[Rfam]
RNA sequence: UGGCACGCUGGACGGGCAUCUUGCUUCUCUUUAAAGAGCAUGGAUUUAUCCGUAACAUGCCACAUUAAUGAAAUGAGUUUUCAGGGCUGCUAACCUCUUGGUUAAGGUUCUGCACAGUCUAUUUCUCCUACAAUA
Numbered sequence: 001u002g003g004c005a006c007g008c009u010g011g012a013c014g015g016g017c018a019u020c021u022u023g024c025u026u027c028u029c030u031u032u033a034a035a036g037a038g039c040a041u042g043g044a045u046u047u048a049u050c051c052g053u054a055a056c057a058u059g060c061c062a063c064a065u066u067a068a069u070g071a072a073a074u075g076a077g078u079u080u081u082c083a084g085g086g087c088u089g090c091u092a093a094c095c096u097c098u099u100g101g102u103u104a105a106g107g108u109u110c111u112g113c114a115c116a117g118u119c120u121a122u123u124u125c126u127c128c129u130a131c132a133a134u135a
Base pairs, nucleotide, nucleotide: 003060004059005058007056020042022040023039024038025037026036075127076126077125086115090112092109093108094107095106096105
Shown here is a 135-nucleotide RNA sequence from Saimiri boliviensis, a member of the family "Small nucleolar RNA U109". A search with the family's covariance model found it, with a score of 60 bits. The base pairs follow the family's consensus structure, which was predicted with WAR. Lineage of the source: Eukaryota > Metazoa > Deuterostomia > Eutheria > Saimiri boliviensis. For this family Rfam cites "A novel experimental approach for systematic identification of box H/ACA snoRNAs from eukaryotes" (Gu et al., Nucleic Acids Res, 2005).